[Rfam]
RNA: MIR159 microRNA precursor family
RNA sequence: AAGGAUCGGAGGGAGCACCCUUCAGUCCAAGCAAAGACGGUGCGAGAUCGAAGCUUUUACCUCCCGCUUCAUUCACUCAUCUGCGAAGCUCGUUUCCAUGGCCGUUUGCUUGGCAUGUGGGUGAAUGAGUCGGCAGCUAAUCCGACCCUAGCACCGCCCCUGAGUGGACUGAAGGACGCUCUCUUCCAUCCGGCC
Numbered sequence: 001a002a003g004g005a006u007c008g009g010a011g012g013g014a015g016c017a018c019c020c021u022u023c024a025g026u027c028c029a030a031g032c033a034a035a036g037a038c039g040g041u042g043c044g045a046g047a048u049c050g051a052a053g054c055u056u057u058u059a060c061c062u063c064c065c066g067c068u069u070c071a072u073u074c075a076c077u078c079a080u081c082u083g084c085g086a087a088g089c090u091c092g093u094u095u096c097c098a099u100g101g102c103c104g105u106u107u108g109c110u111u112g113g114c115a116u117g118u119g120g121g122u123g124a125a126u127g128a129g130u131c132g133g134c135a136g137c138u139a140a141u142c143c144g145a146c147c148c149u150a151g152c153a154c155c156g157c158c159c160c161u162g163a164g165u166g167g168a169c170u171g172a173a174g175g176a177c178g179c180u181c182u183c184u185u186c187c188a189u190c191c192g193g194c195c
Base pairs, nucleotide, nucleotide: 013181014180015179016178019175020174023171024170025169026168027167028166029165036158061136062135064133065132066131070127071126072125073124078119